[Rfam]
RNA sequence: UUGGAGAAAGAGGAGGUGAGUUUAGUUGGUAGGCGGCUUGCUACGGUUAGGCGUAGAGAGUUGAAUCCAACACACCUGGGACACCUUCCCAGAAGUCUUUAGAAGAUUCUCACCUCCCCAA
Numbered sequence: 001u002u003g004g005a006g007a008a009a010g011a012g013g014a015g016g017u018g019a020g021u022u023u024a025g026u027u028g029g030u031a032g033g034c035g036g037c038u039u040g041c042u043a044c045g046g047u048u049a050g051g052c053g054u055a056g057a058g059a060g061u062u063g064a065a066u067c068c069a070a071c072a073c074a075c076c077u078g079g080g081a082c083a084c085c086u087u088c089c090c091a092g093a094a095g096u097c098u099u100u101a102g103a104a105g106a107u108u109c110u111c112a113c114c115u116c117c118c119c120a121a
Stems, first nucleotide, its partner, number of pairs: 001121004012117008025071005034063006041050002043047001073095001076092003

R2 RNA element: a 121-nucleotide sequence from Diabrotica virgifera. By type it is a cis-regulatory element. Pairs were carried over by alignment from the consensus structure, which is taken from published work. Its family is annotated with regulation of reverse transcription in the Gene Ontology. This family represents the 3' UTR region of the R2 retrotransposable element. Lineage of the source: Eukaryota > Panarthropoda > Neuropteroidea > Diabrotica > Diabrotica virgifera. A reference for the family is Ruschak et al. (2004), "Secondary structure models of the 3' untranslated regions of diverse R2 RNAs", RNA.